Record summary: Shown here is a 201-nucleotide sequence from Pseudodesulfovibrio profundus, a member of the family "Group II catalytic intron D1-D4-5".
RNA sequence: ACGAACUAAUAACCUGAAACGAUAGAAUGAAGGAGUAACGCCCUGAAAUGUCGUCCCUGAUACUCCGGCAUGCGGUUGGCAGUGUUAUAUGCCAGCGGUGUGAAGCCCGGUGAAGUCGGCUGAGAGGAUACCCUAGCGCGUUGUGGCGAGGAAUUGCGAACCAGAGGUGGUCGAGUAUCUGAUAGGCCGGGGGGCUAUAAA
Numbered sequence: 001a002c003g004a005a006c007u008a009a010u011a012a013c014c015u016g017a018a019a020c021g022a023u024a025g026a027a028u029g030a031a032g033g034a035g036u037a038a039c040g041c042c043c044u045g046a047a048a049u050g051u052c053g054u055c056c057c058u059g060a061u062a063c064u065c066c067g068g069c070a071u072g073c074g075g076u077u078g079g080c081a082g083u084g085u086u087a088u089a090u091g092c093c094a095g096c097g098g099u100g101u102g103a104a105g106c107c108c109g110g111u112g113a114a115g116u117c118g119g120c121u122g123a124g125a126g127g128a129u130a131c132c133c134u135a136g137c138g139c140g141u142u143g144u145g146g147c148g149a150g151g152a153a154u155u156g157c158g159a160a161c162c163a164g165a166g167g168u169g170g171u172c173g174a175g176u177a178u179c180u181g182a183u184a185g186g187c188c189g190g191g192g193g194g195c196u197a198u199a200a201a
Stems, first nucleotide, its partner, number of pairs: 018054001020053005032044002035041001055193004065110004069102005075096007117189005126180006132151003138147002155174001157173002160171004
Gene Ontology term of the family: Group II intron splicing. It scores 164 bits against the family's covariance model. The organism belongs to Pseudodesulfovibrio, within Bacteria.